A member of the RNA family "Archaeal large subunit ribosomal RNA" from Haloquadratum walsbyi, 276 nucleotides of a longer RNA.
Rfam's curators put it in the seed alignment.
Lineage of the source: Archaea > Methanobacteriati > Halobacteriales > Haloferacaceae > Haloquadratum.

RNA sequence: GAGUGCAUCCACCCGGCAAGUCUAACUGGUCUACCCAGGAAGACGCAGGGAAACCGAUAUGACCGCAGUCAUGACAUCCCAUACUCAUGACCAGGGUCACCGUACUUACAUGCGGGGAGUCGCGUGGAUGCGACCCGAAACCGAGUGAUCUACGCGCGGGCAAGGUGAAGCGUGCCGAAAGGUGCGUGGAAGCCUGUUAGGGAUGGUGUCCUACAAUACCCUCCCGUGACCCACGUGUAGGGGUGAAAGGCCCAUCGAACUCGGCAACAGCUGGUU
Numbered sequence: 001g002a003g004u005g006c007a008u009c010c011a012c013c014c015g016g017c018a019a020g021u022c023u024a025a026c027u028g029g030u031c032u033a034c035c036c037a038g039g040a041a042g043a044c045g046c047a048g049g050g051a052a053a054c055c056g057a058u059a060u061g062a063c064c065g066c067a068g069u070c071a072u073g074a075c076a077u078c079c080c081a082u083a084c085u086c087a088u089g090a091c092c093a094g095g096g097u098c099a100c101c102g103u104a105c106u107u108a109c110a111u112g113c114g115g116g117g118a119g120u121c122g123c124g125u126g127g128a129u130g131c132g133a134c135c136c137g138a139a140a141c142c143g144a145g146u147g148a149u150c151u152a153c154g155c156g157c158g159g160g161c162a163a164g165g166u167g168a169a170g171c172g173u174g175c176c177g178a179a180a181g182g183u184g185c186g187u188g189g190a191a192g193c194c195u196g197u198u199a200g201g202g203a204u205g206g207u208g209u210c211c212u213a214c215a216a217u218a219c220c221c222u223c224c225c226g227u228g229a230c231c232c233a234c235g236u237g238u239a240g241g242g243g244u245g246a247a248a249g250g251c252c253c254a255u256c257g258a259a260c261u262c263g264g265c266a267a268c269a270g271c272u273g274g275u276u
Base pairs, nucleotide, nucleotide: 005131006130007129008128009127010126011125012124014122015121016120017119020044021043022042023041026038027037028036029035048055049054061098062097063096064095068091069090070089071088072087073086074085101114102113103112104111134274135273137271141264142263143262144261145260146259150240151239152238153237154236155235156234158232159231160230161228163195164194165193166192170187171186172185173184174183175182176181200225201224202223203222205221206220208219209218242252243251244250